[Rfam]
RNA sequence: AUUCGGGUUGAGAUCCUCUACAGUACCGUAUGGUGCUGUAGUGUGGAUGACAUGUGGGGCCAGGUCUCACAUGGCAGUGACUGUACAGCACCGUACAAUGCUGCAGAGGAUCCUAACCCCAG
Number, nucleotide and partner (000 for none) at each position: 001a000002u122003u121004c000005g119006g118007g117008u116009u115010g000011a000012g112013a111014u110015c109016c108017u107018c106019u105020a000021c103022a102023g101024u100025a099026c000027c000028g096029u095030a094031u093032g092033g091034u090035g089036c088037u087038g086039u085040a084041g000042u000043g000044u000045g000046g000047a000048u000049g000050a000051c073052a072053u071054g070055u069056g068057g067058g066059g065060c064061c000062a000063g000064g060065u059066c058067u057068c056069a055070c054071a053072u052073g051074g000075c000076a000077g000078u000079g000080a000081c000082u000083g000084u040085a039086c038087a037088g036089c035090a034091c033092c032093g031094u030095a029096c028097a000098a000099u025100g024101c023102u022103g021104c000105a019106g018107a017108g016109g015110a014111u013112c012113c000114u000115a009116a008117c007118c006119c005120c000121a003122g002
Rfam assigns this 122-nucleotide RNA sequence from Triticum aestivum to the family "MIR5084 microRNA precursor family".
Lineage of the source: Eukaryota > Streptophytina > Spermatophyta > Magnoliopsida > Triticum.
Rfam 15.1 lists 152 matches to the family in 5 species.
It scores 115 bits against the family's covariance model.